[Rfam]
RNA sequence: CUGAGCCCGCGAGGUCCGACCUCCGCCUGUCCGGUCCUGGCAUCACUUCCCCGGUGCCAGAGCCGUACGGACGGGGAUCAGGCCGCACGGUCACCCCCGC
Numbered sequence: 001c002u003g004a005g006c007c008c009g010c011g012a013g014g015u016c017c018g019a020c021c022u023c024c025g026c027c028u029g030u031c032c033g034g035u036c037c038u039g040g041c042a043u044c045a046c047u048u049c050c051c052c053g054g055u056g057c058c059a060g061a062g063c064c065g066u067a068c069g070g071a072c073g074g075g076g077a078u079c080a081g082g083c084c085g086c087a088c089g090g091u092c093a094c095c096c097c098c099g100c
Stems, first nucleotide, its partner, number of pairs: 011086001013084004018079002021076005027070004032065004037060007

A member of the RNA family "mraW RNA" from Aeromicrobium erythreum, 100 nucleotides long.